[Rfam]
RNA sequence: CAAGUCUCUAUCAGUUAAAGCCUAACCAGCAGACUGUAUCGAGUGUUGCAUCGAAAUAGGCAACUAUCAGAUGAAGUGUACACAGAGAACUUUUUAGGCCAGAAGGAGUACCGUACUCCUGAAGCAUAUUCAGCCCCGUUAACUGGAAGUUGGUAGCACCGACUAAAGAGCAGAUGACAACAUGUUUAACGUCAUGGAAGUCAGUACAAAUGAGUUGUAAUGGUGAGACUCAUGAGGGUCUGUCGGGGUCAGAGCACC
Numbered sequence: 001c002a003a004g005u006c007u008c009u010a011u012c013a014g015u016u017a018a019a020g021c022c023u024a025a026c027c028a029g030c031a032g033a034c035u036g037u038a039u040c041g042a043g044u045g046u047u048g049c050a051u052c053g054a055a056a057u058a059g060g061c062a063a064c065u066a067u068c069a070g071a072u073g074a075a076g077u078g079u080a081c082a083c084a085g086a087g088a089a090c091u092u093u094u095u096a097g098g099c100c101a102g103a104a105g106g107a108g109u110a111c112c113g114u115a116c117u118c119c120u121g122a123a124g125c126a127u128a129u130u131c132a133g134c135c136c137c138g139u140u141a142a143c144u145g146g147a148a149g150u151u152g153g154u155a156g157c158a159c160c161g162a163c164u165a166a167a168g169a170g171c172a173g174a175u176g177a178c179a180a181c182a183u184g185u186u187u188a189a190c191g192u193c194a195u196g197g198a199a200g201u202c203a204g205u206a207c208a209a210a211u212g213a214g215u216u217g218u219a220a221u222g223g224u225g226a227g228a229c230u231c232a233u234g235a236g237g238g239u240c241u242g243u244c245g246g247g248g249u250c251a252g253a254g255c256a257c258c
Base pairs, nucleotide, nucleotide: 012036013035014034015033020030021029023226025224026223039086040085043083044082045081046080047078048077049073050072051071052070056067057066058065059064130252133249134248135247136246137245138244170243171242172241173240174239175238176202177201178200181196182195183194184193207237210233211232212231213230214229215228216227
Dot-bracket structure: ...........((((....((.[.[[..))..))))..((..((((((((((...((((....))))..))))...)).)))).))...........................................(..((((((...............................(((((((((..((((........))))...)))....(..(((((((......]].])))))))...)))))))))))))..)......

About this RNA
The record is a 258-nucleotide sequence from Halanaerobium salsuginis, which matches "Group II catalytic intron D1-D4-6" in Rfam. About the family: Group II introns are found in rRNA, tRNA and mRNA of organelles in fungi, plants and protists, and also in mRNA in bacteria. The pairing is the family consensus, mapped onto this sequence. Its family is annotated with Group II intron splicing in the Gene Ontology. The organism belongs to Halanaerobium, within Bacteria.